[Rfam]
RNA sequence: GGUUCGGGAGCCUUCCGGUGGGACGGGGGGCAUGAAUGGGACCUUUACCCCCUAUCGCAAGCGGCGCGCGCCCGUGGCCCCGACGGACCCGCG
Numbered sequence: 001g002g003u004u005c006g007g008g009a010g011c012c013u014u015c016c017g018g019u020g021g022g023a024c025g026g027g028g029g030g031c032a033u034g035a036a037u038g039g040g041a042c043c044u045u046u047a048c049c050c051c052c053u054a055u056c057g058c059a060a061g062c063g064g065c066g067c068g069c070g071c072c073c074g075u076g077g078c079c080c081c082g083a084c085g086g087a088c089c090c091g092c093g
Base pairs, nucleotide, nucleotide: 001043002042003041004040005039010031011030012029013028014027015026016025017024067093068092069091070088072086073085074084
Shown here is a 93-nucleotide sequence from Rhodobacter sp. CACIA14H1, a member of the family "Rhodo-rpoB RNA". Rfam classes the family as a cis-regulatory element.